[Rfam]
Shown here is a 298-nucleotide RNA from Rattus norvegicus, a member of the family "Nuclear RNase P". On this family, see Frank and Pace, Annu Rev Biochem 1998: "Ribonuclease P: unity and diversity in a tRNA processing ribozyme". Rfam's curators put it in the seed alignment. NCBI's taxonomy places the organism under Eukaryota, Chordata, Tetrapoda, Euarchontoglires, Rattus. It is annotated as a ribozyme. The base pairs follow the family's consensus structure, which is taken from published work. Rfam 15.1 lists 3,848 matches to the family in 1,862 species. Its Rfam clan is "RNaseP clan".

RNA sequence: GGCGGGGGAAGCUCAUCAGCGGGGCCACGCGCUGAGUGCUCGUCACUCUCUCGGCCCCUGGGAAGGUCUGAGACUGGGGCCUCCCGCGGCCCUAACCGGGCUCUCCCCGAGUGGGGAGGUGAGUUCCCAGAGAGCAGGGCUCCACGCGUGGGCAGACUGGGCAGGAGAAGCCCCCGGGUGGGCGGAUGCCUCCCUCGCCGGGGCUUGGAACAGACUCACGGCCAGCAAUUCGAGUUCAAUGGCUGAGGUGAGGCACCUCGCGGGCCUCAUAACCCAAUUCAGACUACUCUCCCCCGCC
Numbered sequence: 001g002g003c004g005g006g007g008g009a010a011g012c013u014c015a016u017c018a019g020c021g022g023g024g025c026c027a028c029g030c031g032c033u034g035a036g037u038g039c040u041c042g043u044c045a046c047u048c049u050c051u052c053g054g055c056c057c058c059u060g061g062g063a064a065g066g067u068c069u070g071a072g073a074c075u076g077g078g079g080c081c082u083c084c085c086g087c088g089g090c091c092c093u094a095a096c097c098g099g100g101c102u103c104u105c106c107c108c109g110a111g112u113g114g115g116g117a118g119g120u121g122a123g124u125u126c127c128c129a130g131a132g133a134g135c136a137g138g139g140c141u142c143c144a145c146g147c148g149u150g151g152g153c154a155g156a157c158u159g160g161g162c163a164g165g166a167g168a169a170g171c172c173c174c175c176g177g178g179u180g181g182g183c184g185g186a187u188g189c190c191u192c193c194c195u196c197g198c199c200g201g202g203g204c205u206u207g208g209a210a211c212a213g214a215c216u217c218a219c220g221g222c223c224a225g226c227a228a229u230u231c232g233a234g235u236u237c238a239a240u241g242g243c244u245g246a247g248g249u250g251a252g253g254c255a256c257c258u259c260g261c262g263g264g265c266c267u268c269a270u271a272a273c274c275c276a277a278u279u280c281a282g283a284c285u286a287c288u289c290u291c292c293c294c295c296g297c298c
Stems, first nucleotide, its partner, number of pairs: 001298004007292003012247004017242001021058004034048005068282005078223004088102005103118006119219007139204003248270007